[Rfam]
RNA sequence: CAAGCCAGAAGAGGCGCGUCGCCCAGGUAAGAUAUCGGAGGAUCCGUAGUCCGCAGAUGAUAUCCGAGGGGGAGCGAUGCCGAGAUGAAAUGAAAAUACGGCGUUCACUUCAUCGACCGCAGGGGCUGAAUCCCCUGGGUUGUCACCCGGUUCGCCCAGAAGGGCGUUCAGCAAGGUGGAGCGCUUCUGGGUGU
Numbered sequence: 001c002a003a004g005c006c007a008g009a010a011g012a013g014g015c016g017c018g019u020c021g022c023c024c025a026g027g028u029a030a031g032a033u034a035u036c037g038g039a040g041g042a043u044c045c046g047u048a049g050u051c052c053g054c055a056g057a058u059g060a061u062a063u064c065c066g067a068g069g070g071g072g073a074g075c076g077a078u079g080c081c082g083a084g085a086u087g088a089a090a091u092g093a094a095a096a097u098a099c100g101g102c103g104u105u106c107a108c109u110u111c112a113u114c115g116a117c118c119g120c121a122g123g124g125g126c127u128g129a130a131u132c133c134c135c136u137g138g139g140u141u142g143u144c145a146c147c148c149g150g151u152u153c154g155c156c157c158a159g160a161a162g163g164g165c166g167u168u169c170a171g172c173a174a175g176g177u178g179g180a181g182c183g184c185u186u187c188u189g190g191g192u193g194u
Stems, first nucleotide, its partner, number of pairs: 006189006016080007024072001031064007084114006091107004115141004120137006143179005